[Rfam]
Nucleotides: 096
Stems, first nucleotide, its partner, number of pairs: 001014005030059004036052006062086005068080002
Number, partner (000 for none) and nucleotide at each position: 001014u002013g003012a004011c005010c006000u007000u008000c009000g010005g011004g012003u013002c014001a015000c016000c017000u018000a019000g020000c021000c022000a023000a024000c025000u026000g027000a028000c029000g030059u031058u032057g033056u034000u035000u036052g037051u038050g039049g040048a041047u042000u043000u044000a045000g046000u047041g048040u049039c050038c051037a052036c053000a054000a055000a056033a057032u058031a059030g060000a061000g062086c063085c064084a065083a066082c067000c068080g069079g070000a071000g072000u073000c074000u075000u076000u077000u078000u079069c080068c081000a082066g083065u084064u085063g086062g087000c088000u089000a090000u091000u092000u093000u094000u095000u096000u
Shown here is a 96-nucleotide RNA from Vibrio sp. 99-8-1, a member of the family "Qrr RNA". About the family: This family represents a set of small RNAs (the Qrr RNAs) that are thought to be involved in the regulation of quorum sensing in Vibrio species. It is believed that these RNAs, guided by a protein, Hfq, can mediate the destabilisation of the quorum-sensing master regulators LuxR/HapR mRNAs. NCBI's taxonomy places the organism under Bacteria, Pseudomonadati, Pseudomonadota, Vibrionales, Vibrio. Rfam links the family to the GO term quorum sensing. The literature on the family includes a 2004 paper in Cell by Lenz et al., "The Small RNA Chaperone Hfq and Multiple Small RNAs Control Quorum Sensing in Vibrio harveyi and Vibrio cholerae".